[Rfam]
Description:
mir-395 microRNA precursor family: a 119-nucleotide sequence from Trema orientale. The match comes from Rfam's covariance-model search (57 bits). NCBI's taxonomy places the organism under Eukaryota, Euphyllophyta, eudicotyledons, Cannabaceae, Trema. Pairs were carried over by alignment from the consensus structure, which was predicted with PFOLD. The literature on the family includes a 2004 paper in Mol Cell by Jones-Rhoades and Bartel, "Computational Identification of Plant MicroRNAs and Their Targets, Including a Stress-Induced miRNA". About the family: mir-395 was identified in both Arabidopsis thaliana and Oryza sativa computationally and was later experimentally verified. mir-395 is thought to target mRNAs coding for ATP sulphurylases. The mature sequence is excised from the 3' arm of the hairpin. Rfam links the family to the GO terms RISC complex and miRNA-mediated post-transcriptional gene silencing.

RNA sequence: CUGUUCCCUAGGGUUCCCUUGACCACUUCACUGGGGUUGUAAAUUUGAUUAAGACCCUCAAUUAUACAAGGGUAAAAUUUAUGUACUACUGAAGUGUUUGGGGGAACUCCGGGGGCCAU
Dot-bracket structure: ....(((((.((((((((((.(.(((((((.(((...................................................))).)))))))..))))))))))).)))))....
Numbered sequence: 001c002u003g004u005u006c007c008c009u010a011g012g013g014u015u016c017c018c019u020u021g022a023c024c025a026c027u028u029c030a031c032u033g034g035g036g037u038u039g040u041a042a043a044u045u046u047g048a049u050u051a052a053g054a055c056c057c058u059c060a061a062u063u064a065u066a067c068a069a070g071g072g073u074a075a076a077a078u079u080u081a082u083g084u085a086c087u088a089c090u091g092a093a094g095u096g097u098u099u100g101g102g103g104g105a106a107c108u109c110c111g112g113g114g115g116c117c118a119u
Stems, first nucleotide, its partner, number of pairs: 005115005011109010022099001024096007032088003